[Rfam]
Nucleotides: 084
Base pairs, nucleotide, nucleotide: 003051005049006048007047008046009045010044011043012042015039016038017072018071019070020069024035025034026033027032061079062078063077064076065075
Number, partner (000 for none) and nucleotide at each position: 001000u002000c003051g004000u005049g006048u007047a008046u009045c010044c011043g012042u013000g014000a015039c016038u017072g018071g019070c020069g021000c022000a023000g024035a025034g026033g027032g028000g029000g030000a031000a032027c033026c034025c035024u036000c037000g038016g039015g040000g041000a042012g043011c044010g045009g046008a047007u048006g049005c050000c051003c052000g053000a054000g055000u056000g057000a058000c059000u060000c061079g062078c063077g064076u065075c066000g067000c068000a069020c070019g071018c072017c073000u074000g075065g076064g077063c078062g079061c080000a081000c082000c083000g084000g

Overview
The record is an 84-nucleotide RNA from Pseudoclavibacter caeni, which matches "ZMP/ZTP riboswitch aptamer (pfl RNA motif)" in Rfam.